About this RNA: This 77-nucleotide RNA sequence from Coregonus sp. 'balchen' belongs to the Rfam family "Small nucleolar RNA SNORD111". By type it is a C/D-box small nucleolar RNA. Its family is annotated with RNA processing and nucleolus in the Gene Ontology. For this family Rfam cites "Purified box C/D snoRNPs are able to reproduce site-specific 2'-O-methylation of target RNA in vitro" (Galardi et al., Mol Cell Biol, 2002).
[Rfam]
RNA sequence: CUGUAUGAAAUGAUGAUAUUCAUGUCUCUUCUCUGACAAAGCACUGGAGAGAAUGUGGAUACCUCUGAUCUCAGCAG
Numbered sequence: 001c002u003g004u005a006u007g008a009a010a011u012g013a014u015g016a017u018a019u020u021c022a023u024g025u026c027u028c029u030u031c032u033c034u035g036a037c038a039a040a041g042c043a044c045u046g047g048a049g050a051g052a053a054u055g056u057g058g059a060u061a062c063c064u065c066u067g068a069u070c071u072c073a074g075c076a077g
Stems, first nucleotide, its partner, number of pairs: 001077004